RNA sequence: GAUGAGGAUAGAGGUCGCGGCUUUUAUAUGAUUCUGGCACGAGAUCCAGAGAAGAUCGAUGACUCCAGAGGAGGGAAAAGCCGCCGAAGUCCGCUGUGCAUUCUCUGGGCACACGGGCUGGGGCUGUACCCGAAAGGGGCAGAACUGUCACGUUUGCGAGCCGGGCAAACGUGGUGUGCUAUCUUCAAC
Dot-bracket structure: .....((((((.....(((((((((.......(((((.(........................))))))......)))))))))...((((((.(((((.........)))))))))))((..((((.((.....)).))))..)).(((((((((.........)))))))))....)))))).....
Numbered sequence: 001g002a003u004g005a006g007g008a009u010a011g012a013g014g015u016c017g018c019g020g021c022u023u024u025u026a027u028a029u030g031a032u033u034c035u036g037g038c039a040c041g042a043g044a045u046c047c048a049g050a051g052a053a054g055a056u057c058g059a060u061g062a063c064u065c066c067a068g069a070g071g072a073g074g075g076a077a078a079a080g081c082c083g084c085c086g087a088a089g090u091c092c093g094c095u096g097u098g099c100a101u102u103c104u105c106u107g108g109g110c111a112c113a114c115g116g117g118c119u120g121g122g123g124c125u126g127u128a129c130c131c132g133a134a135a136g137g138g139g140c141a142g143a144a145c146u147g148u149c150a151c152g153u154u155u156g157c158g159a160g161c162c163g164g165g166c167a168a169a170c171g172u173g174g175u176g177u178g179c180u181a182u183c184u185u186c187a188a189c
Stems, first nucleotide, its partner, number of pairs: 006184006017084009033069005039064001088119006095113005120146002124142004129137002148174009